Rfam assigns this 46-nucleotide sequence to the family "ssnA RNA".
Rfam's curators put it in the seed alignment.
Pairs were carried over by alignment from the consensus structure, which is taken from published work.
RNA sequence: AUAUAUCGGCUGUAAGGGAGUGCUUUGCGCGCGGGCUAAGUUAAUA
Numbered sequence: 001a002u003a004u005a006u007c008g009g010c011u012g013u014a015a016g017g018g019a020g021u022g023c024u025u026u027g028c029g030c031g032c033g034g035g036c037u038a039a040g041u042u043a044a045u046a
Base pairs, nucleotide, nucleotide: 008037009036010035011034020032021031022030023029